[Rfam]
RNA sequence: GGCAUGCAUGACUGUAAAUUGCUUUGGAUAAAAGCGUCUGCUAAAUGGCAUAAA
Numbered sequence: 001g002g003c004a005u006g007c008a009u010g011a012c013u014g015u016a017a018a019u020u021g022c023u024u025u026g027g028a029u030a031a032a033a034g035c036g037u038c039u040g041c042u043a044a045a046u047g048g049c050a051u052a053a054a
Stems, first nucleotide, its partner, number of pairs: 013043001014041003020036006
Annotation: UnaL2 LINE 3' element: a 54-nucleotide RNA from Salmo salar. Pairs were carried over by alignment from the consensus structure, which is taken from published work. Rfam describes the family as follows. The eel long interspersed element (LINE) UnaL2 and its partner short interspersed element (SINE) share a conserved 3' tail containing a stem-loop that is critical for their retrotransposition.